[Rfam]
RNA sequence: AAAUAAUAGAGGCAAAGCAGGGUAAAUCUUGUGACGCAAAACUAUAGGGCCUUUAAAAUGGCAGCCAGUUGCAGAU
Number, nucleotide and partner (000 for none) at each position: 001a000002a000003a000004u000005a000006a000007u000008a000009g000010a000011g000012g037013c036014a000015a000016a000017g032018c031019a030020g029021g028022g027023u000024a000025a000026a000027u022028c021029u020030u019031g018032u017033g000034a000035c000036g013037c012038a000039a000040a070041a069042c068043u067044a000045u000046a000047g066048g065049g062050c061051c060052u000053u000054u000055a000056a000057a000058a000059u000060g051061g050062c049063a000064g000065c048066c047067a043068g042069u041070u040071g000072c000073a000074g000075a000076u000
RNA: c-di-GMP-I riboswitch aptamer
Organism: Psychrilyobacter sp. S5